[Rfam]
RNA sequence: UUAUAAAAAGGAAAUGGUGUCUUCCUUCCCAAGAACCGCCCGUUACGGGCUGAUGGCGCCUGCAAAUAG
Numbered sequence: 001u002u003a004u005a006a007a008a009a010g011g012a013a014a015u016g017g018u019g020u021c022u023u024c025c026u027u028c029c030c031a032a033g034a035a036c037c038g039c040c041c042g043u044u045a046c047g048g049g050c051u052g053a054u055g056g057c058g059c060c061u062g063c064a065a066a067u068a069g
Stems, first nucleotide, its partner, number of pairs: 010025004016060006038050004

Rfam assigns this 69-nucleotide sequence from Chitinophaga parva to the family "Fluoride riboswitch aptamer (crcB RNA motif)". The match comes from Rfam's covariance-model search (56 bits). The source organism's lineage runs through Bacteria, Pseudomonadati, Chitinophagia, Chitinophagaceae and Chitinophaga.